[Rfam]
RNA sequence: GACUCGGCCUUUCGCGGUUUUAACGCCCAAACCUGGUCAGGAUCGGAAGGUAGCAGCCACAAGGGAUGCUUGAGGCAGGCGAGAUAACCGAGUCACUU
Numbered sequence: 001g002a003c004u005c006g007g008c009c010u011u012u013c014g015c016g017g018u019u020u021u022a023a024c025g026c027c028c029a030a031a032c033c034u035g036g037u038c039a040g041g042a043u044c045g046g047a048a049g050g051u052a053g054c055a056g057c058c059a060c061a062a063g064g065g066a067u068g069c070u071u072g073a074g075g076c077a078g079g080c081g082a083g084a085u086a087a088c089c090g091a092g093u094c095a096c097u098u
Base pairs, nucleotide, nucleotide: 003092004091005090006089007088010084011083012082013081014080017076018075019074020073021072022071026065027064028063034059035058036057037056042051043050044049

Description:
This 98-nucleotide RNA sequence from Prochlorococcus sp. belongs to the Rfam family "Bacterial small signal recognition particle RNA". Rfam's curators write: The signal recognition particle (SRP) is a universally conserved ribonucleoprotein involved in the co-translational targeting of proteins to membranes. Rfam's curators put it in the seed alignment. The base pairs follow the family's consensus structure, which is taken from published work.